[Rfam]
Nucleotides: 108
Base pairs, nucleotide, nucleotide: 004105005104006103007102008101009100010099016025017024018023027088028087029078030077031044032043033042034041039076040075047054048053058074059073060072061071062070080091081090082089
Number, partner (000 for none) and nucleotide at each position: 001000a002000g003000a004105u005104u006103u007102c008101u009100u010099c011000u012000a013000g014000a015000a016025g017024a018023g019000u020000g021000a022000u023018c024017u025016c026000u027088a028087c029078c030077g031044g032043c033042g034041g035000u036000a037000c038000a039076g040075c041034c042033c043032g044031c045000g046000a047054g048053c049000g050000a051000a052000a053048g054047c055000u056000a057000a058074u059073c060072c061071g062070g063000u064000c065000a066000g067000a068000a069000c070062c071061c072060g073059g074058a075040g076039c077030c078029g079000a080091c081090a082089g083000u084000a085000a086000a087028g088027u089082c090081u091080g092000g093000a094000u095000g096000a097000g098000a099010g100009a101008a102007g103006a104005a105004a106000g107000c108000g